[Rfam]
This 129-nucleotide RNA from Leptobrachium leishanense belongs to the Rfam family "U11 spliceosomal RNA". It scores 67 bits against the family's covariance model. It is annotated as a spliceosomal small nuclear RNA.
RNA sequence: AAAAAGGGCUUGUGCUAUGUAUGGCACAUUGUGAUCUCCCGCAUGGGGAUUGCGGUGCGGAAUCCAUAGAUAUUUCGGAAGGAUAAUUUUUAUAAUGGGCUGCUUGUGAGCGGCUCUCCGGGCACCCCU
Numbered sequence: 001a002a003a004a005a006g007g008g009c010u011u012g013u014g015c016u017a018u019g020u021a022u023g024g025c026a027c028a029u030u031g032u033g034a035u036c037u038c039c040c041g042c043a044u045g046g047g048g049a050u051u052g053c054g055g056u057g058c059g060g061a062a063u064c065c066a067u068a069g070a071u072a073u074u075u076c077g078g079a080a081g082g083a084u085a086a087u088u089u090u091u092a093u094a095a096u097g098g099g100c101u102g103c104u105u106g107u108g109a110g111c112g113g114c115u116c117u118c119c120g121g122g123c124a125c126c127c128c129u
Base pairs, nucleotide, nucleotide: 009081010080011079013026014025015024016023017022027057028056029055030054031053032052033051034050035049036048037047038046058077059076060075061074062073063072097127098126099125102123103122104121105120106119108118109117110116

The organism belongs to Leptobrachium, within Eukaryota.